[Rfam]
Source information:
This 109-nucleotide RNA sequence from Longilinea arvoryzae belongs to the Rfam family "SAM riboswitch aptamer (S box leader)".
RNA sequence: CUCUUAUCCAGAGAGGUGGAGGGACCGGCCCGACGAAACCUCGGCAACCUGCUAAACCAAACGGUUUUUCAAGGUGCCAAUUCCGGCAGAAAGUUCUGGAAGAUGAGAG
Dot-bracket structure: ((((((((....(((((...(((.[[[[)))......)))))((((.((.(.................)...))))))...(]]]]((((....))))..)))))))))
Numbered sequence: 001c002u003c004u005u006a007u008c009c010a011g012a013g014a015g016g017u018g019g020a021g022g023g024a025c026c027g028g029c030c031c032g033a034c035g036a037a038a039c040c041u042c043g044g045c046a047a048c049c050u051g052c053u054a055a056a057c058c059a060a061a062c063g064g065u066u067u068u069u070c071a072a073g074g075u076g077c078c079a080a081u082u083c084c085g086g087c088a089g090a091a092a093g094u095u096c097u098g099g100a101a102g103a104u105g106a107g108a109g
Stems, first nucleotide, its partner, number of pairs: 001109008013042005021031003025086004043078004048074002051069001082101001087098004